Rfam assigns this 152-nucleotide sequence from Mesobacillus boroniphilus to the family "PyrR binding site". The organism belongs to Mesobacillus boroniphilus, within Bacteria. Rfam describes the family as follows. This family represents the PyrR binding site and terminator structure.
[Rfam]
RNA sequence: ACCACCUUUUAAUAAAGUCCAGAGAGGCUUGGAAGGGUGUUAUGGGCGAACCGGCUUAUUCAAGAUGGACGCAAACCUGGAAUUACCGGGUUUAUGCCGGCAAGCUCAUACUUAAGCACCCUGUUGGACAGAAAACAGGGUGCUUUUUUCUU
Numbered sequence: 001a002c003c004a005c006c007u008u009u010u011a012a013u014a015a016a017g018u019c020c021a022g023a024g025a026g027g028c029u030u031g032g033a034a035g036g037g038u039g040u041u042a043u044g045g046g047c048g049a050a051c052c053g054g055c056u057u058a059u060u061c062a063a064g065a066u067g068g069a070c071g072c073a074a075a076c077c078u079g080g081a082a083u084u085a086c087c088g089g090g091u092u093u094a095u096g097c098c099g100g101c102a103a104g105c106u107c108a109u110a111c112u113u114a115a116g117c118a119c120c121c122u123g124u125u126g127g128a129c130a131g132a133a134a135a136c137a138g139g140g141u142g143c144u145u146u147u148u149u150c151u152u
Stems, first nucleotide, its partner, number of pairs: 005036005015030005068098001070096002073093008114145012